[Rfam]
RNA sequence: GCGCAGCCAGUUAAGCUGACUGGCCUGCCUGCCAUGGGGGCCUGGUGUGCAAUGGCUGCGCACAGCACCCCCCUGGUUGUGUAUGUGCUCUGUACGGAGCGCCCUAAGGGACCGCGGGGACAUGG
Numbered sequence: 001g002c003g004c005a006g007c008c009a010g011u012u013a014a015g016c017u018g019a020c021u022g023g024c025c026u027g028c029c030u031g032c033c034a035u036g037g038g039g040g041c042c043u044g045g046u047g048u049g050c051a052a053u054g055g056c057u058g059c060g061c062a063c064a065g066c067a068c069c070c071c072c073c074u075g076g077u078u079g080u081g082u083a084u085g086u087g088c089u090c091u092g093u094a095c096g097g098a099g100c101g102c103c104c105u106a107a108g109g110g111a112c113c114g115c116g117g118g119g120a121c122a123u124g125g
Base pairs, nucleotide, nucleotide: 003050004049005048019046020045021044022043025040026039028037075113076112077111086101087100088099089098090097091096
The family of this 125-nucleotide RNA from Chelonoidis abingdonii is "Small nucleolar RNA SNORA70". For this family Rfam cites "Pseudouridine in RNA: what, where, how, and why" (Charette and Gray, IUBMB Life, 2000). The match comes from Rfam's covariance-model search (90 bits). Lineage of the source: Eukaryota > Metazoa > Euteleostomi > Testudinata > Chelonoidis nigra species complex. The family's consensus secondary structure was predicted with PFOLD. snoRNA U70 seems to be exclusive to mammals and is a member of the H/ACA class of snoRNA which contain H (ANANNA) and ACA box motifs.